[Rfam]
RNA sequence: AUAAGCGGGCACUCCUUUACUUUACUAGGUUUGUCUGAAAAAGUAAGAGGGAGAUCAAUUUCUCAAGAUAUCGUUUCGGUUGCCAUUUUUAUUCAAUUAAGUUGGUACUCGAUUGUUGCUUGAGAACAA
Numbered sequence: 001a002u003a004a005g006c007g008g009g010c011a012c013u014c015c016u017u018u019a020c021u022u023u024a025c026u027a028g029g030u031u032u033g034u035c036u037g038a039a040a041a042a043g044u045a046a047g048a049g050g051g052a053g054a055u056c057a058a059u060u061u062c063u064c065a066a067g068a069u070a071u072c073g074u075u076u077c078g079g080u081u082g083c084c085a086u087u088u089u090u091a092u093u094c095a096a097u098u099a100a101g102u103u104g105g106u107a108c109u110c111g112a113u114u115g116u117u118g119c120u121u122g123a124g125a126a127c128a129a
Stems, first nucleotide, its partner, number of pairs: 006037006013029002061125002064122004070113004079108002082106004087101002
The family of this 129-nucleotide RNA sequence from Carex littledalei is "Small nucleolar RNA snoR111". The family's RNA type in Rfam is H/ACA-box small nucleolar RNA. The family's consensus secondary structure was predicted with WAR. Its family is annotated with nucleolus and RNA processing in the Gene Ontology. The literature on the family includes a 2002 paper in Curr Biol by Marker et al., "Experimental RNomics: identification of 140 candidates for small non-messenger RNAs in the plant Arabidopsis thaliana". NCBI's taxonomy places the organism under Eukaryota, Tracheophyta, Magnoliopsida, Cyperaceae, Carex subgen. Euthyceras. A search with the family's covariance model found it, with a score of 52 bits.